[Rfam]
RNA sequence: UUGCAGCAAGCGCAGGGUUUGUAGAGGUCGCCCCUUGGGCGUCAAGCCGAAAGGCCCGGAUCCUCGAACCUGGGGCUGCAACCUUC
Numbered sequence: 001u002u003g004c005a006g007c008a009a010g011c012g013c014a015g016g017g018u019u020u021g022u023a024g025a026g027g028u029c030g031c032c033c034c035u036u037g038g039g040c041g042u043c044a045a046g047c048c049g050a051a052a053g054g055c056c057c058g059g060a061u062c063c064u065c066g067a068a069c070c071u072g073g074g075g076c077u078g079c080a081a082c083c084u085u086c
Base pairs, nucleotide, nucleotide: 001081002080003079004078005077006076007075011073013072014071015070016069022067024065025064026063027043029041030040031039032038033037046055047054048053
Dot-bracket structure: (((((((...(.((((.....(.((((.(((((...))))).)..(((....))).......))).).))))).))))))).....